[Rfam]
RNA: MIR812 microRNA precursor family
RNA sequence: UUAAAGUGUGUUGGGGGAUUUUUUUUUCAACAUUUAACCGUCCGUGUUAUUUGAAAUUUUUUUAUGAUUAAUAUUCUAUUGUUAUUAGAUGAUAAAAUAUGAAUAGUAUUUUAUGCGUGAUUAUUUUUAAAACCUUUUCAUAAUUUUUUAAAAAAGAUGGACUGUUAAACGUUGGAUACAGAAAUCAACAGCUAAAUUUAAA
Number, nucleotide and partner (000 for none) at each position: 001u000002u000003a000004a000005a000006g000007u000008g000009u000010g000011u000012u000013g000014g000015g000016g000017g000018a000019u000020u000021u000022u000023u000024u000025u000026u176027u175028c174029a173030a172031c171032a000033u169034u168035u167036a166037a165038c164039c000040g162041u161042c160043c159044g158045u157046g000047u155048u154049a000050u152051u000052u000053g000054a000055a000056a000057u000058u000059u000060u000061u000062u000063u000064a000065u000066g000067a000068u000069u000070a000071a000072u000073a000074u000075u000076c000077u000078a000079u000080u000081g000082u000083u000084a000085u000086u000087a000088g000089a000090u000091g000092a000093u000094a000095a000096a000097a000098u000099a000100u000101g000102a000103a000104u000105a000106g000107u000108a000109u000110u000111u000112u000113a000114u000115g000116c000117g000118u000119g000120a000121u000122u000123a000124u000125u000126u000127u000128u000129a000130a000131a000132a000133c000134c000135u000136u000137u000138u000139c000140a000141u000142a000143a000144u000145u000146u000147u000148u000149u000150a000151a000152a050153a000154a048155a047156g000157a045158u044159g043160g042161a041162c040163u000164g038165u037166u036167a035168a034169a033170c000171g031172u030173u029174g028175g027176a026177u000178a000179c000180a000181g000182a000183a000184a000185u000186c000187a000188a000189c000190a000191g000192c000193u000194a000195a000196a000197u000198u000199u000200a000201a000202a000